[Rfam]
RNA: MIR162_1 microRNA precursor family
RNA sequence: GCGGAGUUCAUUGGAGUCAGCGGUUCAUCGAUCAGUUCCUUUAACUUGAAGAACAAACAUAUGAACAAGAGAGAGCGUAAAAGAGGAAUCGAUCGAUAAACCUCUGCAUCCAGUGUCCACCCC
Dot-bracket structure: ............(((..(((.((((.(((((((..(((((((.......................................)))))))..))))))).)))).)))..)))............